[Rfam]
RNA sequence: GGAAUAUCCUGUGCAGUGUUACAGAUAUUUU
Number, nucleotide and partner (000 for none) at each position: 001g031002g030003a029004a028005u027006a026007u025008c000009c024010u023011g022012u021013g020014c018015a000016g000017u000018g014019u000020u013021a012022c011023a010024g009025a007026u006027a005028u004029u003030u002031u001